[Rfam]
RNA: Small nucleolar RNA snoR14
RNA sequence: GCGAGGUGACGAUAAAUUCAACGGUCUAUCGACCACUGAUAAACUUUAAUUGAUGUUAAACGUUGAAUCCCGACAGGUUCCGAUCGC
Numbered sequence: 001g002c003g004a005g006g007u008g009a010c011g012a013u014a015a016a017u018u019c020a021a022c023g024g025u026c027u028a029u030c031g032a033c034c035a036c037u038g039a040u041a042a043a044c045u046u047u048a049a050u051u052g053a054u055g056u057u058a059a060a061c062g063u064u065g066a067a068u069c070c071c072g073a074c075a076g077g078u079u080c081c082g083a084u085c086g087c
Base pairs, nucleotide, nucleotide: 001087002086003085004084